[Rfam]
RNA sequence: UGAGGCACCUCUGGAAAGAGCCGCACACCGUCGUCCGUGUGCCCGGCCGCCGAAGGAGAAAGGCAGCGUCGCCGCUGCUGAAGCUCUCAGGCACCACCGACAGAGCGGGGAGG
Numbered sequence: 001u002g003a004g005g006c007a008c009c010u011c012u013g014g015a016a017a018g019a020g021c022c023g024c025a026c027a028c029c030g031u032c033g034u035c036c037g038u039g040u041g042c043c044c045g046g047c048c049g050c051c052g053a054a055g056g057a058g059a060a061a062g063g064c065a066g067c068g069u070c071g072c073c074g075c076u077g078c079u080g081a082a083g084c085u086c087u088c089a090g091g092c093a094c095c096a097c098c099g100a101c102a103g104a105g106c107g108g109g110g111a112g113g
Base pairs, nucleotide, nucleotide: 006108009105010104011103012102013101020047021046022045023044049092050091051090052088053087056086057085058084062079063078064077065076066075067074068073

Glycine riboswitch aptamer: a 113-nucleotide RNA from Corynebacterium bovis.
About the family: This family represents the bacterial glycine riboswitch. Glycine riboswitches usually consist of two metabolite-binding aptamers domains with similar structures in tandem. The aptamers cooperatively bind glycine to regulate the expression of downstream genes.
It scores 56 bits against the family's covariance model.
The family has 44 seed sequences and 9,425 matches in Rfam 15.1.
Taxonomically the source falls in Corynebacterium (Bacteria, Bacillati, Actinomycetes, Mycobacteriales).